[Rfam]
RNA sequence: UCCUAGCCCGGAUGGCAGCGGCAUCCUUUUUUGUCGCCGCCUUUGCGGCAAAAAAGAUACAGCGGACAGCCGGAAUAGCU
Numbered sequence: 001u002c003c004u005a006g007c008c009c010g011g012a013u014g015g016c017a018g019c020g021g022c023a024u025c026c027u028u029u030u031u032u033g034u035c036g037c038c039g040c041c042u043u044u045g046c047g048g049c050a051a052a053a054a055a056g057a058u059a060c061a062g063c064g065g066a067c068a069g070c071c072g073g074a075a076u077a078g079c080u
Stems, first nucleotide, its partner, number of pairs: 009072003013068002018063002023058003029053008
RNA: Flavo-1 RNA
Organism: Flavobacterium caeni